[Rfam]
RNA sequence: UCGGGUAAUUGAACUGCAGCGCGACCUGCAAAACAGGAGCGAGGAAAGUCCGGACUUCAAAGAGCAGAGUGCUGGCUAACGGCCAGGCGGGGUAACUCGACGGAAAGUGCAACAGAAAAAAAACAGCCUAAGCCGUAAGGCCGGCAAUGGUGAAAACGUGAGGUAAGAGCUCACGGAUUUGAUUGGCAACAAUCAGUCUGGCAAACCCCACUCGAAGCAAAGCCAAAUAGGGGUGGAGAGCUGGCUCGGCUCAUUAUCACACUCGGGUUGGCUGCAAAGAAUGUUUCGGCAACGUAACAUCAAGAGAAAUUGUAGUUAAAACAGAAUCCGGCUUAUAAAUUGCCCGAAUUU
Numbered sequence: 001u002c003g004g005g006u007a008a009u010u011g012a013a014c015u016g017c018a019g020c021g022c023g024a025c026c027u028g029c030a031a032a033a034c035a036g037g038a039g040c041g042a043g044g045a046a047a048g049u050c051c052g053g054a055c056u057u058c059a060a061a062g063a064g065c066a067g068a069g070u071g072c073u074g075g076c077u078a079a080c081g082g083c084c085a086g087g088c089g090g091g092g093u094a095a096c097u098c099g100a101c102g103g104a105a106a107g108u109g110c111a112a113c114a115g116a117a118a119a120a121a122a123a124c125a126g127c128c129u130a131a132g133c134c135g136u137a138a139g140g141c142c143g144g145c146a147a148u149g150g151u152g153a154a155a156a157c158g159u160g161a162g163g164u165a166a167g168a169g170c171u172c173a174c175g176g177a178u179u180u181g182a183u184u185g186g187c188a189a190c191a192a193u194c195a196g197u198c199u200g201g202c203a204a205a206c207c208c209c210a211c212u213c214g215a216a217g218c219a220a221a222g223c224c225a226a227a228u229a230g231g232g233g234u235g236g237a238g239a240g241c242u243g244g245c246u247c248g249g250c251u252c253a254u255u256a257u258c259a260c261a262c263u264c265g266g267g268u269u270g271g272c273u274g275c276a277a278a279g280a281a282u283g284u285u286u287c288g289g290c291a292a293c294g295u296a297a298c299a300u301c302a303a304g305a306g307a308a309a310u311u312g313u314a315g316u317u318a319a320a321a322c323a324g325a326a327u328c329c330g331g332c333u334u335a336u337a338a339a340u341u342g343c344c345c346g347a348a349u350u351u
Stems, first nucleotide, its partner, number of pairs: 001347010011336001012317007020041003025037004046334003050331005055217004062247004067213005072086005087101001088099004102208002107206002109202002124149002126145003132141003157175006177197001180195006221273004231264005238252005281300005287294002